Rfam assigns this 97-nucleotide sequence from Companilactobacillus allii to the family "THF (Tetrahydrofolate) riboswitch aptamer".
On this family, see Ames et al., Chem Biol 2010: "A eubacterial riboswitch class that senses the coenzyme tetrahydrofolate".

RNA sequence: UUUGGGGUAGGAUUCAAAGCGUAAAGUGCUGGUGGAACGGAAUGUGAACACCGGACGAAAAGCUAUUGCUUGCGAUUUUGUUUCCGCAUUCGUCACU
Numbered sequence: 001u002u003u004g005g006g007g008u009a010g011g012a013u014u015c016a017a018a019g020c021g022u023a024a025a026g027u028g029c030u031g032g033u034g035g036a037a038c039g040g041a042a043u044g045u046g047a048a049c050a051c052c053g054g055a056c057g058a059a060a061a062g063c064u065a066u067u068g069c070u071u072g073c074g075a076u077u078u079u080g081u082u083u084c085c086g087c088a089u090u091c092g093u094c095a096c097u
Base pairs, nucleotide, nucleotide: 003095004094005093010085011084012083015080016079017078018077019076020074021073022072026056027055029054030053031052032051033050034049040091041090042089043088044087060071061070062069063068
Annotation:
NCBI's taxonomy places the organism under Bacteria, Bacillati, Bacillota, Bacilli, Companilactobacillus. About the family: Tetrahydrofolate (THF) riboswitch was first reported for Ames et al. as an RNA motif in 5' untranslated (5'-UTR)regions of folate transport and biosynthesis genes in Firmicutes genomes.